[Rfam]
RNA sequence: AUCCUAGUCCAGGGGCGUUACCCAUCUCCGUGAAGCGAUGAGCUGAGAGUGGUUUUUGCUGAUUGAAAGCUAUAUGCUGACCGCUCCUACUUGGGUUCGCCUAGGUAGGGAAUUUUUGGAACACUUUUCCUUUUGGAA
Numbered sequence: 001a002u003c004c005u006a007g008u009c010c011a012g013g014g015g016c017g018u019u020a021c022c023c024a025u026c027u028c029c030g031u032g033a034a035g036c037g038a039u040g041a042g043c044u045g046a047g048a049g050u051g052g053u054u055u056u057u058g059c060u061g062a063u064u065g066a067a068a069g070c071u072a073u074a075u076g077c078u079g080a081c082c083g084c085u086c087c088u089a090c091u092u093g094g095g096u097u098c099g100c101c102u103a104g105g106u107a108g109g110g111a112a113u114u115u116u117u118g119g120a121a122c123a124c125u126u127u128u129c130c131u132u133u134u135g136g137a138a
Base pairs, nucleotide, nucleotide: 020053021052023051024050026049027048028047034044035043036042085110086109087108088107089106090105091104092103093102094101095100
Rfam assigns this 138-nucleotide RNA from Fusarium poae to the family "U4 spliceosomal RNA". About the family: U4 small nuclear RNA (U4 snRNA) is a component of the major U2-dependent spliceosome. Its Rfam clan is "U4 clan". By type it is a spliceosomal small nuclear RNA. The match comes from Rfam's covariance-model search (76 bits).